[Rfam]
Nucleotides: 112
Base pairs, nucleotide, nucleotide: 005108007106008105011102012101013100014099015098016097017096018095019094022092023091024090025089026088027087028086029085030084031083032082033081036078
Number, partner (000 for none) and nucleotide at each position: 001000g002000u003000g004000u005108u006000c007106c008105c009000a010000a011102g012101a013100g014099u015098u016097c017096c018095u019094u020000g021000c022092a023091a024090g025089c026088a027087c028086u029085u030084c031083a032082c033081a034000u035000a036078g037000a038000a039000c040000u041000u042000c043000u044000g045000u046000u047000a048000c049000u050000c051000u052000c053000a054000u055000g056000u057000a058000a059000c060000a061000u062000u063000g064000g065000g066000a067000a068000c069000u070000u071000g072000a073000g074000a075000a076000g077000c078036u079000a080000c081033u082032g083031u084030g085029a086028a087027g088026u089025g090024u091023u092022u093000g094019g095018g096017g097016g098015a099014a100013c101012u102011c103000u104000a105008g106007g107000u108005g109000g110000c111000a112000c

Shown here is a 112-nucleotide RNA from Oryza sativa, a member of the family "mir-395 microRNA precursor family".
The source organism's lineage runs through Eukaryota, Tracheophyta, Euphyllophyta, Liliopsida and Oryza sativa.
From the family's description: mir-395 was identified in both Arabidopsis thaliana and Oryza sativa computationally and was later experimentally verified. mir-395 is thought to target mRNAs coding for ATP sulphurylases. The mature sequence is excised from the 3' arm of the hairpin.
Pairs were carried over by alignment from the consensus structure, which was predicted with PFOLD.